A member of the RNA family "mir-1388 microRNA precursor family" from Acipenser ruthenus, 91 nucleotides long. Its family is annotated with miRNA-mediated post-transcriptional gene silencing and RISC complex in the Gene Ontology. The organism belongs to Acipenser, within Eukaryota.
RNA sequence: GUACGAGAGGUGCUUCCAGGACUGUCUAACCUGAGAAUGCAAAAUUGAGGGUCAAUCUCAGGUUCGUCAGCCCAUGAAACACUUUCUCAAA
Dot-bracket structure: ....((((((((.(((..((.(((.(.(((((((((.((.............)).))))))))).).))).))..))).))))).)))...
Numbered sequence: 001g002u003a004c005g006a007g008a009g010g011u012g013c014u015u016c017c018a019g020g021a022c023u024g025u026c027u028a029a030c031c032u033g034a035g036a037a038u039g040c041a042a043a044a045u046u047g048a049g050g051g052u053c054a055a056u057c058u059c060a061g062g063u064u065c066g067u068c069a070g071c072c073c074a075u076g077a078a079a080c081a082c083u084u085u086c087u088c089a090a091a
Stems, first nucleotide, its partner, number of pairs: 005088003008084005014078003019073002022070003026066001028064009038054002